RNA sequence: UCCGGGAGCGAAGCUCCCGGGCCGCUGACGUCGGUACCUGAUACGGCCGGCGCAG
Numbered sequence: 001u002c003c004g005g006g007a008g009c010g011a012a013g014c015u016c017c018c019g020g021g022c023c024g025c026u027g028a029c030g031u032c033g034g035u036a037c038c039u040g041a042u043a044c045g046g047c048c049g050g051c052g053c054a055g
Base pairs, nucleotide, nucleotide: 001021002020003019004018005017006016007015008014009013025055026054027053029052030051031050032049033048034047035046

The family of this 55-nucleotide RNA sequence from Streptomyces sp. 8K308 is "L17-Actino-Proteobacteria ribosomal protein leader". It scores 59 bits against the family's covariance model.